This 60-nucleotide sequence from Bacillus cytotoxicus belongs to the Rfam family "Fluoride riboswitch aptamer (crcB RNA motif)". Rfam links the family to the GO terms positive regulation of gene expression and response to fluoride. The family's consensus secondary structure is taken from published work.
[Rfam]
RNA sequence: AAUGAAUACGGCGAUGGAGUUCGCCACAACCGCUGCUUAGCUAAUGACUCCUACCAGGAU
Numbered sequence: 001a002a003u004g005a006a007u008a009c010g011g012c013g014a015u016g017g018a019g020u021u022c023g024c025c026a027c028a029a030c031c032g033c034u035g036c037u038u039a040g041c042u043a044a045u046g047a048c049u050c051c052u053a054c055c056a057g058g059a060u
Base pairs, nucleotide, nucleotide: 010025011024012023013022016051017050018049019048020047021046032041033040034039